[Rfam]
RNA sequence: ACACGAGAGAGGAGGUGGUCUGAAGUUGAUGAACUCUAGGACGCGUGAGGUGGCUGCCAGCUAGCCGCUACCGCUGACGGAUUCACACCCGCGCGAGCGGCGAGCGAAUCCCCGGCAGCUACCCGGCCCCCGAGCCCUCGGUCCGUCCGACCGAGACCUGACAAGUCAGGAACGGCUCGGGGGCCGUUCGCA
Numbered sequence: 001a002c003a004c005g006a007g008a009g010a011g012g013a014g015g016u017g018g019u020c021u022g023a024a025g026u027u028g029a030u031g032a033a034c035u036c037u038a039g040g041a042c043g044c045g046u047g048a049g050g051u052g053g054c055u056g057c058c059a060g061c062u063a064g065c066c067g068c069u070a071c072c073g074c075u076g077a078c079g080g081a082u083u084c085a086c087a088c089c090c091g092c093g094c095g096a097g098c099g100g101c102g103a104g105c106g107a108a109u110c111c112c113c114g115g116c117a118g119c120u121a122c123c124c125g126g127c128c129c130c131c132g133a134g135c136c137c138u139c140g141g142u143c144c145g146u147c148c149g150a151c152c153g154a155g156a157c158c159u160g161a162c163a164a165g166u167c168a169g170g171a172a173c174g175g176c177u178c179g180g181g182g183g184c185c186g187u188u189c190g191c192a
Stems, first nucleotide, its partner, number of pairs: 014058006060105003064101002067098003072093003124186013137155006

Source information
Rfam assigns this 192-nucleotide RNA from Rhodococcus sp. EPR-157 to the family "Actinobacteria sRNA Ms_IGR-5". Rfam classes the family as a small RNA.